[Rfam]
RNA sequence: CUGCUGGCUGUCUCUAAUUCGCUUGGUGCAGGUCGGGAACGGGGCCCUUUAACGCCGAUGGCUUCCUCUCUUCUGGUGGCGGCGCCCGCCCCCGUUCCCGCCUUGCAUCAACUGAAUCGGAGACAGAAGUGAGU
Numbered sequence: 001c002u003g004c005u006g007g008c009u010g011u012c013u014c015u016a017a018u019u020c021g022c023u024u025g026g027u028g029c030a031g032g033u034c035g036g037g038a039a040c041g042g043g044g045c046c047c048u049u050u051a052a053c054g055c056c057g058a059u060g061g062c063u064u065c066c067u068c069u070c071u072u073c074u075g076g077u078g079g080c081g082g083c084g085c086c087c088g089c090c091c092c093c094g095u096u097c098c099c100g101c102c103u104u105g106c107a108u109c110a111a112c113u114g115a116a117u118c119g120g121a122g123a124c125a126g127a128a129g130u131g132a133g134u
Stems, first nucleotide, its partner, number of pairs: 013121002017117004023111010034100005040094005
The record is a 134-nucleotide RNA from Spirodela intermedia, which matches "MIR168 microRNA precursor family" in Rfam.
Rfam links the family to the GO terms RISC complex and miRNA-mediated post-transcriptional gene silencing.
The literature on the family includes a 2002 paper in Cell by Rhoades et al., "Prediction of plant microRNA targets".